[Rfam]
RNA sequence: CUGUAAGUGAAUUAGUUCAUUCGUAUAUUCUCAGUAUGAAGGUCUGAGAGUUUCUACCGGGUACCGAAAAUUCCUGACUACGAAUGGGUGGAUAAGUCUA
Number, nucleotide and partner (000 for none) at each position: 001c000002u000003g000004u000005a000006a000007g000008u000009g000010a000011a000012u000013u000014a000015g000016u000017u000018c086019a085020u084021u083022c082023g081024u080025a079026u000027a000028u000029u049030c048031u047032c046033a045034g044035u000036a000037u000038g000039a000040a000041g000042g000043u000044c034045u033046g032047a031048g030049a029050g000051u000052u000053u000054c000055u000056a000057c000058c076059g075060g074061g073062u000063a071064c000065c000066g000067a000068a000069a000070a000071u063072u000073c061074c060075u059076g058077a000078c000079u025080a024081c023082g022083a021084a020085u019086g018087g000088g000089u000090g000091g000092a000093u000094a000095a000096g000097u000098c000099u000100a000
The family of this 100-nucleotide RNA from Litchfieldia salsa is "Purine riboswitch aptamer". A search with the family's covariance model found it, with a score of 72 bits. Riboswitches are metabolite binding domains within certain messenger RNAs that serve as precision sensors for their corresponding targets. Allosteric rearrangement of mRNA structure is mediated by ligand binding, and this results in modulation of gene expression. Lineage of the source: Bacteria > Bacillati > Bacillota > Caryophanales > Litchfieldia.